[Rfam]
RNA sequence: UGUCAUUCCAGUGCUCCCUUUCUUGUCAUCCCAGUGCUUGACACUGGGAUCCAGCUUCUAUGCAACUUAAUUAAAAACGUUUGUUUUAGCGUAAGACAACUACCUUUAGCUCAUCAGCUCAGUUAUAAGCAAAAUUUCUGGAUUCCAGUGUCAAGCACUGGAAUGACAUCAUCUGUUGUGCAAUUU
Numbered sequence: 001u002g003u004c005a006u007u008c009c010a011g012u013g014c015u016c017c018c019u020u021u022c023u024u025g026u027c028a029u030c031c032c033a034g035u036g037c038u039u040g041a042c043a044c045u046g047g048g049a050u051c052c053a054g055c056u057u058c059u060a061u062g063c064a065a066c067u068u069a070a071u072u073a074a075a076a077a078c079g080u081u082u083g084u085u086u087u088a089g090c091g092u093a094a095g096a097c098a099a100c101u102a103c104c105u106u107u108a109g110c111u112c113a114u115c116a117g118c119u120c121a122g123u124u125a126u127a128a129g130c131a132a133a134a135u136u137u138c139u140g141g142a143u144u145c146c147a148g149u150g151u152c153a154a155g156c157a158c159u160g161g162a163a164u165g166a167c168a169u170c171a172u173c174u175g176u177u178g179u180g181c182a183a184u185u186u
Stems, first nucleotide, its partner, number of pairs: 011181004024168006031161024
Notes
The family of this 186-nucleotide sequence from Nephila pilipes is "Wolbachia sRNA 46". Lineage of the source: Eukaryota > Eumetazoa > Arthropoda > Araneae > Nephila. It scores 73 bits against the family's covariance model. The pairing is the family consensus, mapped onto this sequence.